RNA sequence: UGCCUAAGUUCUAAUAGGAUAUGGCAUAAGCAACCGUUCAGAGUAUCAAGCUCCUCGUCAGAGCACUCUGAACGGUCAUAUCCCGAAAGGGGUAUGGGUAGCGAAAGCUAUC
Numbered sequence: 001u002g003c004c005u006a007a008g009u010u011c012u013a014a015u016a017g018g019a020u021a022u023g024g025c026a027u028a029a030g031c032a033a034c035c036g037u038u039c040a041g042a043g044u045a046u047c048a049a050g051c052u053c054c055u056c057g058u059c060a061g062a063g064c065a066c067u068c069u070g071a072a073c074g075g076u077c078a079u080a081u082c083c084c085g086a087a088a089g090g091g092g093u094a095u096g097g098g099u100a101g102c103g104a105a106a107g108c109u110a111u112c
Stems, first nucleotide, its partner, number of pairs: 001026004009019003034075011050064004077096008097112006
Notes
A member of the RNA family "LOOT RNA", 112 nucleotides long. Pairs were carried over by alignment from the consensus structure, which is taken from published work.